c-di-AMP riboswitch aptamer (ydaO/yuaA leader): a 154-nucleotide RNA from Oryzihumus leptocrescens. The base pairs follow the family's consensus structure. About the family: This family represents a conserved RNA structure found upstream of the ydaO and yuaA genes in Bacillus subtilis and related genes in other bacteria. A search with the family's covariance model found it, with a score of 55 bits. Lineage of the source: Bacteria > Bacillati > Actinomycetota > Intrasporangiaceae > Oryzihumus.

RNA sequence: ACAGUCGAGCCACUGCAGUCUGUGACAGGAGCGGAAGACCCAGCACGACGAGGCGCGACGCGUCUCUUGGGGUGAAGCCAGCCACGGCUGGCCGGGCAACUUUCGGCGUCCGAACCCGACAGGUCAUCUUUCGCAGGCGGUUCCGAAGGAAUCC
Dot-bracket structure: ..........(.((....((.......)).((((((....((.........................))(((.....((((......))))..((((..........))))...)))...........)))))).)).)...............